[Rfam]
RNA sequence: AAUAGUAGCAUGACAAAACAGAUUUUUCCUCCUGAUUUUCAGCUUUUUCUUCUUGAAAAAAUUCAAAUCCAACUAAAAAUGUUAAAAAUCGGGAGGAAAAAUAUGAUUUAUCAUGCUCAUAUU
Numbered sequence: 001a002a003u004a005g006u007a008g009c010a011u012g013a014c015a016a017a018a019c020a021g022a023u024u025u026u027u028c029c030u031c032c033u034g035a036u037u038u039u040c041a042g043c044u045u046u047u048u049c050u051u052c053u054u055g056a057a058a059a060a061a062u063u064c065a066a067a068u069c070c071a072a073c074u075a076a077a078a079a080u081g082u083u084a085a086a087a088a089u090c091g092g093g094a095g096g097a098a099a100a101a102u103a104u105g106a107u108u109u110a111u112c113a114u115g116c117u118c119a120u121a122u123u
Stems, first nucleotide, its partner, number of pairs: 001123004007117007015109003019105002022102006029095011041083002045079004
MIR7504 microRNA precursor family: a 123-nucleotide RNA sequence from Gossypium trilobum. Gene Ontology terms of the family: miRNA-mediated post-transcriptional gene silencing and RISC complex. The source organism's lineage runs through Eukaryota, Streptophyta, malvids, Malvaceae and Gossypium.